[Rfam]
RNA: mir-2060 microRNA precursor family
Organism: Branchiostoma belcheri
Nucleotides: 088
Base pairs, nucleotide, nucleotide: 001076002075012069013068014067015066016065017064018063020061021060022059023058024057025056026055028049031046032045033044034043035042
Number, partner (000 for none) and nucleotide at each position: 001076u002075u003000u004000c005000a006000u007000g008000u009000g010000g011000a012069u013068g014067g015066u016065g017064u018063u019000c020061a021060g022059c023058a024057c025056c026055a027000a028049g029000g030000a031046c032045a033044g034043g035042u036000a037000u038000g039000u040000u041000a042035a043034c044033c045032u046031g047000c048000a049028u050000g051000u052000g053000g054000a055026u056025g057024g058023u059022g060021u061020u062000c063018a064017a065016c066015a067014c068013c069012a070000a071000g072000g073000c074000c075002a076001g077000a078000u079000g080000u081000g082000u083000u084000g085000g086000c087000u088000g